This 87-nucleotide RNA from Sapajus apella belongs to the Rfam family "mir-515 microRNA precursor family".
Pairs were carried over by alignment from the consensus structure, which was predicted with RNAalifold.
The family has 181 seed sequences and 1,056 matches in Rfam 15.1.

RNA sequence: UCUCAUGCUGUGACUCUCCAAAGGAAAGCACUUUCUAUUGUCCGAAAGAAAUGAAUGUGUCUUCCUUUAGAAAGUUGUUGAUUGAGA
Numbered sequence: 001u002c003u004c005a006u007g008c009u010g011u012g013a014c015u016c017u018c019c020a021a022a023g024g025a026a027a028g029c030a031c032u033u034u035c036u037a038u039u040g041u042c043c044g045a046a047a048g049a050a051a052u053g054a055a056u057g058u059g060u061c062u063u064c065c066u067u068u069a070g071a072a073a074g075u076u077g078u079u080g081a082u083u084g085a086g087a
Base pairs, nucleotide, nucleotide: 001087002086003085004084005083008080010078011077012076013075014074017071018070020068021067022066023065024064025063026062028060029059030058031057033055034054035053039051